[Rfam]
RNA: EGFOA RNA
RNA sequence: UCAUCCCCAGAUUCAAAACCGUCGCAGUAGCCUUUUGGCUAGGUGGCAUGACAGAGUUAUGUUGAAUAUACGUGGUAAAGCUGCACCUGGGCACGUUGAAUGUCAUG
Numbered sequence: 001u002c003a004u005c006c007c008c009a010g011a012u013u014c015a016a017a018a019c020c021g022u023c024g025c026a027g028u029a030g031c032c033u034u035u036u037g038g039c040u041a042g043g044u045g046g047c048a049u050g051a052c053a054g055a056g057u058u059a060u061g062u063u064g065a066a067u068a069u070a071c072g073u074g075g076u077a078a079a080g081c082u083g084c085a086c087c088u089g090g091g092c093a094c095g096u097u098g099a100a101u102g103u104c105a106u107g
Stems, first nucleotide, its partner, number of pairs: 006091005021086002024084004028041005047107007058068003070096005